[Rfam]
RNA sequence: GCCGAUAUGUUGCCUUUAUCUGCAUUUGCACCUGCACUUUAAUUACUUGGUUUCUCUGUGACAUAAAUAAAUAUAAAUAUGUCAGGUAAGAGAAAUAUAUUAUAUAUAAUAUGGGAAUAGAGGUACCGAGAACGAGGUGCAGGUGCAUCUGCAGGUGAAUGUCAUAUUGGA
Number, nucleotide and partner (000 for none) at each position: 001g000002c170003c169004g168005a167006u166007a165008u164009g163010u000011u000012g162013c161014c000015u159016u158017u157018a156019u155020c154021u153022g152023c151024a150025u000026u000027u147028g146029c145030a144031c143032c142033u141034g140035c139036a138037c137038u136039u135040u000041a000042a000043u000044u000045a000046c000047u000048u000049g000050g072051u071052u070053u069054c000055u067056c000057u065058g064059u063060g000061a000062c000063a059064u058065a057066a000067a055068u000069a053070a052071a051072u050073a000074u000075a000076a000077a000078u000079a000080u000081g000082u000083c000084a000085g000086g000087u000088a000089a000090g000091a000092g000093a000094a000095a000096u000097a000098u000099a000100u000101u000102a000103u000104a000105u000106a000107u000108a000109a000110u000111a000112u000113g000114g000115g000116a000117a000118u000119a000120g000121a000122g000123g000124u000125a000126c000127c000128g000129a000130g000131a000132a000133c000134g000135a039136g038137g037138u036139g035140c034141a033142g032143g031144u030145g029146c028147a027148u000149c000150u024151g023152c022153a021154g020155g019156u018157g017158a016159a015160u000161g013162u012163c009164a008165u007166a006167u005168u004169g003170g002171a000
Overview:
MIR530 microRNA precursor family: a 171-nucleotide RNA from Glycine max. The family's consensus secondary structure was predicted with WAR. Its family is annotated with miRNA-mediated post-transcriptional gene silencing and RISC complex in the Gene Ontology.